[Rfam]
Notes:
The record is an 81-nucleotide RNA sequence from Gouania willdenowi, which matches "mir-26 microRNA precursor family" in Rfam. Pairs were carried over by alignment from the consensus structure, which was predicted with RNAalifold. Taxonomically the source falls in Gouania (Eukaryota, Deuterostomia, Gnathostomata, Eurypterygia). For this family Rfam cites "Identification of novel genes coding for small expressed RNAs" (Lagos-Quintana et al., Science, 2001).
RNA sequence: CUUCAACCAGGUUCAAGUAAUCCAGGAUAGGCUUUCUGACUCUGCACAGGCCUAUGCUUGGUUACUUGCACUUGGGGGUUG
Dot-bracket structure: ...(..((((((.(((((((((.((.(((((((...............))))))).)).))))))))).))))))..)...